[Rfam]
Acido-Lenti-1 RNA: a 46-nucleotide RNA from Singulisphaera acidiphila.
RNA sequence: AUAAGGGCUUGCGCCCCUGGCUAUUGACGUCCGCCCCUUCGGGGCU
Numbered sequence: 001a002u003a004a005g006g007g008c009u010u011g012c013g014c015c016c017c018u019g020g021c022u023a024u025u026g027a028c029g030u031c032c033g034c035c036c037c038u039u040c041g042g043g044g045c046u
Base pairs, nucleotide, nucleotide: 002019003018005016006015007014008013033045034044035043036042037041
By type it is a small RNA.
A search with the family's covariance model found it, with a score of 39 bits.
NCBI's taxonomy places the organism under Bacteria, Planctomycetota, Isosphaerales, Isosphaeraceae, Singulisphaera acidiphila.